[Rfam]
RNA: Glycine riboswitch aptamer
RNA sequence: AUGACGGCAAGGGGAGAGACUACGGAAUGUAGCGCCGAAGGAGCAAGCGGAAACGCGAAUCUCUCAGGCAAAAAGACUCUUGCUUGACG
Number, nucleotide and partner (000 for none) at each position: 001a000002u000003g000004a000005c000006g084007g083008c082009a081010a080011g079012g078013g077014g000015a000016g000017a000018g000019a000020c032021u031022a030023c029024g000025g000026a000027a000028u000029g023030u022031a021032g020033c000034g069035c068036c067037g065038a064039a000040g000041g063042a062043g061044c000045a000046a000047g056048c055049g000050g000051a000052a000053a000054c000055g048056c047057g000058a000059a000060u000061c043062u042063c041064u038065c037066a000067g036068g035069c034070a000071a000072a000073a000074a000075g000076a000077c013078u012079c011080u010081u009082g008083c007084u006085u000086g000087a000088c000089g000